[Rfam]
RNA sequence: UUUAAGUGCAGUUGUGAGUUUCCGUGUCCAAUGUCUGAUCAUCCGUCUUAUUUAAAAAAAUAUGAAAAUUUUUUAAAAAAUAAGUCAUACAUAAAGUACGGUUCAUGUUCUAUAAUCUAAUAACAAUAAAAAUGCUACUAAUAGAAAAUUUUCAAACAAGAUGAACGGUGAAACGUUGGACACGAAAAUCAGCUCACAACUGCACUUAAA
Numbered sequence: 001u002u003u004a005a006g007u008g009c010a011g012u013u014g015u016g017a018g019u020u021u022c023c024g025u026g027u028c029c030a031a032u033g034u035c036u037g038a039u040c041a042u043c044c045g046u047c048u049u050a051u052u053u054a055a056a057a058a059a060a061u062a063u064g065a066a067a068a069u070u071u072u073u074u075a076a077a078a079a080a081u082a083a084g085u086c087a088u089a090c091a092u093a094a095a096g097u098a099c100g101g102u103u104c105a106u107g108u109u110c111u112a113u114a115a116u117c118u119a120a121u122a123a124c125a126a127u128a129a130a131a132a133u134g135c136u137a138c139u140a141a142u143a144g145a146a147a148a149u150u151u152u153c154a155a156a157c158a159a160g161a162u163g164a165a166c167g168g169u170g171a172a173a174c175g176u177u178g179g180a181c182a183c184g185a186a187a188a189u190c191a192g193c194u195c196a197c198a199a200c201u202g203c204a205c206u207u208a209a210a
Stems, first nucleotide, its partner, number of pairs: 027180006034173001036171001038169003042165001044163006051156001

Source information:
A member of the RNA family "MIR812 microRNA precursor family" from Oryza meridionalis, 210 nucleotides long. The family has 22 seed sequences and 57,451 matches in Rfam 15.1. The match comes from Rfam's covariance-model search (109 bits).